[Rfam]
RNA sequence: CGCUUAUUAAGAAAGACGGAGGGAUUAGACCCUGCGAAGUCUUAGCAACCUGUGCUAACAAGGUGCUAAAUUCUAUCCGCCGGUUGGCGGAAAAGAUAAGUG
Numbered sequence: 001c002g003c004u005u006a007u008u009a010a011g012a013a014a015g016a017c018g019g020a021g022g023g024a025u026u027a028g029a030c031c032c033u034g035c036g037a038a039g040u041c042u043u044a045g046c047a048a049c050c051u052g053u054g055c056u057a058a059c060a061a062g063g064u065g066c067u068a069a070a071u072u073c074u075a076u077c078c079g080c081c082g083g084u085u086g087g088c089g090g091a092a093a094a095g096a097u098a099a100g101u102g
Stems, first nucleotide, its partner, number of pairs: 001102008013043005021032003026075004044067004049063002051060003071094001076091006
RNA: SAM riboswitch aptamer (S box leader)